[Rfam]
RNA sequence: CCCUUCCGCGCGGGGACGUGUGCGCGGCGUGGAUUAGCCGGAUCGUGCCACGCCAUGAAAAACACCGGCAGCA
Numbered sequence: 001c002c003c004u005u006c007c008g009c010g011c012g013g014g015g016a017c018g019u020g021u022g023c024g025c026g027g028c029g030u031g032g033a034u035u036a037g038c039c040g041g042a043u044c045g046u047g048c049c050a051c052g053c054c055a056u057g058a059a060a061a062a063c064a065c066c067g068g069c070a071g072c073a
Stems, first nucleotide, its partner, number of pairs: 001015004007026005028052005037069005
Proteo-phage-1 RNA: a 73-nucleotide sequence from Roseinatronobacter bogoriensis. It scores 54 bits against the family's covariance model. NCBI's taxonomy places the organism under Bacteria, Rhodobacterales, Paracoccaceae, Roseinatronobacter, Roseinatronobacter bogoriensis. Pairs were carried over by alignment from the consensus structure, which is taken from published work.